A member of the RNA family "Purine riboswitch aptamer" from Tepidibacillus sp. HK-1, 102 nucleotides long. Pairs were carried over by alignment from the consensus structure, which is taken from published work. The source organism's lineage runs through Bacteria, Bacillati, Bacillota, Caryophanales and Tepidibacillus.
[Rfam]
RNA sequence: AAUUCAAUCAUAUCUGUUCUUCGUAUAUGUCUGAGGAUAAGGCUCAGAUGUCUCUACCGAGCGACCGUAAAUUGCUUGACUACGAAGGGAUCAGACCUGUUA
Numbered sequence: 001a002a003u004u005c006a007a008u009c010a011u012a013u014c015u016g017u018u019c020u021u022c023g024u025a026u027a028u029g030u031c032u033g034a035g036g037a038u039a040a041g042g043c044u045c046a047g048a049u050g051u052c053u054c055u056a057c058c059g060a061g062c063g064a065c066c067g068u069a070a071a072u073u074g075c076u077u078g079a080c081u082a083c084g085a086a087g088g089g090a091u092c093a094g095a096c097c098u099g100u101u102a
Base pairs, nucleotide, nucleotide: 018088019087020086021085022084023083024082025081029049030048031047032046033045034044035043058078059077060076061075062074063073064072